Notes:
Shown here is a 133-nucleotide sequence from Meleagris gallopavo, a member of the family "Small nucleolar RNA SNORA17". The organism belongs to Meleagris, within Eukaryota. Rfam describes the family as follows. snoRNA ACA 17 belongs to the H/ACA family of snoRNAs and is predicted to guide pseudouridylation of the 28S rRNA at positions U4659 and U4598. It shares the same host gene together with ACA43. NB This family has a high threshold value to exclude a large number of closely related sequences that do not appear to have conserved H and ACA boxes, and may be pseudogenes. By type it is an H/ACA-box small nucleolar RNA. The family is grouped with related families in Rfam's "SNORA17 clan".
RNA sequence: CAUGCCCCAGUCGUGUUGCAGAUAUGGCUGUAGUGCCAUGUUUGUGUCAUUAGGUGGCAGAAAGGAACAGGCUGUGUCUGAGCUAAUGCUCUGAAACCCGUGAGCACUCAGGAAUGACCAGCAGCCUGACAAA
Numbered sequence: 001c002a003u004g005c006c007c008c009a010g011u012c013g014u015g016u017u018g019c020a021g022a023u024a025u026g027g028c029u030g031u032a033g034u035g036c037c038a039u040g041u042u043u044g045u046g047u048c049a050u051u052a053g054g055u056g057g058c059a060g061a062a063a064g065g066a067a068c069a070g071g072c073u074g075u076g077u078c079u080g081a082g083c084u085a086a087u088g089c090u091c092u093g094a095a096a097c098c099c100g101u102g103a104g105c106a107c108u109c110a111g112g113a114a115u116g117a118c119c120a121g122c123a124g125c126c127u128g129a130c131a132a133a
Base pairs, nucleotide, nucleotide: 003059004058005057006056007054008053009051010050013047014046018045019044020043021042023040024039025038026037027036028035068128069127070126071125072124073123074122075121082115084110086108087106088105089104090103091102
Dot-bracket structure: ..((((((((..((...((((.((((((......)))))).))))))..)).)).))))........((((((((......(.(.((((((..........))))).).)....).....)))))))).....